[Rfam]
RNA sequence: GGCGAUCACGGAGAAAAGCAGGAGCGACGACGCUCCUCGCCCACGGUGCAAGUCACCGCUCGACGGUGGCGAAACUCUCAGGCCAAUGACUCCGGGGAGACC
Numbered sequence: 001g002g003c004g005a006u007c008a009c010g011g012a013g014a015a016a017a018g019c020a021g022g023a024g025c026g027a028c029g030a031c032g033c034u035c036c037u038c039g040c041c042c043a044c045g046g047u048g049c050a051a052g053u054c055a056c057c058g059c060u061c062g063a064c065g066g067u068g069g070c071g072a073a074a075c076u077c078u079c080a081g082g083c084c085a086a087u088g089a090c091u092c093c094g095g096g097g098a099g100a101c102c
Base pairs, nucleotide, nucleotide: 006097007096009094010093011092012091013090020037021036022035023034039083040082041081043078046077048075052070053069054068055067056066057065058064